[Rfam]
RNA sequence: GCAGACUCACUCUGCAUCCGGCUGCACUUCAGAUGGGUGCUUUUUCUGUCUGCCAAAGAAAUAUUCCGGGUGCUGUGGCUGCCUGACUUGUCAGGGGCGAUGCAGCUGCCUGGGGACACAGGG
Numbered sequence: 001g002c003a004g005a006c007u008c009a010c011u012c013u014g015c016a017u018c019c020g021g022c023u024g025c026a027c028u029u030c031a032g033a034u035g036g037g038u039g040c041u042u043u044u045u046c047u048g049u050c051u052g053c054c055a056a057a058g059a060a061a062u063a064u065u066c067c068g069g070g071u072g073c074u075g076u077g078g079c080u081g082c083c084u085g086a087c088u089u090g091u092c093a094g095g096g097g098c099g100a101u102g103c104a105g106c107u108g109c110c111u112g113g114g115g116a117c118a119c120a121g122g123g
Stems, first nucleotide, its partner, number of pairs: 001053006014040007022032003065114007072106006080099005

Source information:
The record is a 123-nucleotide RNA sequence from Microcebus murinus, which matches "Small nucleolar RNA SNORA77" in Rfam. Its family is annotated with RNA processing and nucleolus in the Gene Ontology. The base pairs follow the family's consensus structure, which was predicted with RNAalifold. The family has 19 seed sequences and 843 matches in Rfam 15.1. It is one of the family's seed sequences. About the family: ACA63 (SNORA77) is a member of the H/ACA class of snoRNAs that guide the sites of modification of uridines to pseudouridines.